[Rfam]
RNA: Small nucleolar RNA SNORD124
RNA sequence: GUAGUUAGAGGAAGGAAUAAUGUGUUACAAAAGUCCCAAGAAAAGGAUUCUGAUUACACUUUCUUUACAAUGAUUGAACUUUAACGAUCACUGACCUUCCUUUAAUCCUC
Numbered sequence: 001g002u003a004g005u006u007a008g009a010g011g012a013a014g015g016a017a018u019a020a021u022g023u024g025u026u027a028c029a030a031a032a033g034u035c036c037c038a039a040g041a042a043a044a045g046g047a048u049u050c051u052g053a054u055u056a057c058a059c060u061u062u063c064u065u066u067a068c069a070a071u072g073a074u075u076g077a078a079c080u081u082u083a084a085c086g087a088u089c090a091c092u093g094a095c096c097u098u099c100c101u102u103u104a105a106u107c108c109u110c
Stems, first nucleotide, its partner, number of pairs: 009101007